[Rfam]
RNA: DUF805b RNA
RNA sequence: AAGGUGGAAGUCGAAAAGCCUAAAUAGAGUAGACA
Dot-bracket structure: .((((....[[[.....))))..........]]].
Numbered sequence: 001a002a003g004g005u006g007g008a009a010g011u012c013g014a015a016a017a018g019c020c021u022a023a024a025u026a027g028a029g030u031a032g033a034c035a
Stems, first nucleotide, its partner, number of pairs: 002021004010034003